[Rfam]
RNA sequence: AUCUUAUCCAGAGUGGUGGAGGGAAAUGCCCUAUGAAGCCCAGCAACCUAAACAAUAAUUCAUUAUGUGUUUAAGGUGCUAAGUCAUGCAGAACAACUAAUUGUUCUGAAAGAUGAGAA
Numbered sequence: 001a002u003c004u005u006a007u008c009c010a011g012a013g014u015g016g017u018g019g020a021g022g023g024a025a026a027u028g029c030c031c032u033a034u035g036a037a038g039c040c041c042a043g044c045a046a047c048c049u050a051a052a053c054a055a056u057a058a059u060u061c062a063u064u065a066u067g068u069g070u071u072u073a074a075g076g077u078g079c080u081a082a083g084u085c086a087u088g089c090a091g092a093a094c095a096a097c098u099a100a101u102u103g104u105u106c107u108g109a110a111a112g113a114u115g116a117g118a119a
Stems, first nucleotide, its partner, number of pairs: 002118007013041001015040003021031003026087003042080004047076002050071002084111001089108006

Shown here is a 119-nucleotide sequence from Listeria monocytogenes, a member of the family "SAM riboswitch aptamer (S box leader)". It is one of the family's seed sequences. Pairs were carried over by alignment from the consensus structure, which is taken from published work. Rfam's curators write: The SAM riboswitch is found upstream of a number of genes which code for proteins involved in methionine or cysteine biosynthesis in Gram-positive bacteria. The SAM riboswitch acts at the level of transcription termination control. The predicted structure consists of a complex stem-loop region followed by a single stem loop terminator region. An alternative and mutually exclusive form involves bases in the 3' segment of helix 1 with those in the 5' region of helix 5 to form a structure termed the anti-terminator form.